[Rfam]
Rfam assigns this 160-nucleotide sequence from Paenibacillus lemnae to the family "FMN riboswitch aptamer (RFN element)". Rfam's curators write: The RFN element is a highly conserved domain that is found frequently in the 5'-untranslated regions of prokaryotic mRNAs that encode for flavin mononucleotide (FMN) biosynthesis and transport proteins.

RNA sequence: CAUUUCCUUCGGGGCAGGGUGAAAUUCCCUACCGGCGGUGAUGUCAUCAGCCGUCAAUGGCUGAAUGACUCAGUCCGUGACCCGGUACUACACGUGUAGAUCCGGUGGACCUGGUGAAAAUCCGGGACCGACAGUAUAGUCUGGAUGGGAGAAGGAGAAG
Numbered sequence: 001c002a003u004u005u006c007c008u009u010c011g012g013g014g015c016a017g018g019g020u021g022a023a024a025u026u027c028c029c030u031a032c033c034g035g036c037g038g039u040g041a042u043g044u045c046a047u048c049a050g051c052c053g054u055c056a057a058u059g060g061c062u063g064a065a066u067g068a069c070u071c072a073g074u075c076c077g078u079g080a081c082c083c084g085g086u087a088c089u090a091c092a093c094g095u096g097u098a099g100a101u102c103c104g105g106u107g108g109a110c111c112u113g114g115u116g117a118a119a120a121u122c123c124g125g126g127a128c129c130g131a132c133a134g135u136a137u138a139g140u141c142u143g144g145a146u147g148g149g150a151g152a153a154g155g156a157g158a159a160g
Base pairs, nucleotide, nucleotide: 003158004157005156006155007154008153009152010151017029018028019027031140032139033130034129035078036077037076038075073128074127082105083104084103085102110126111125112124113123114122132143133142134141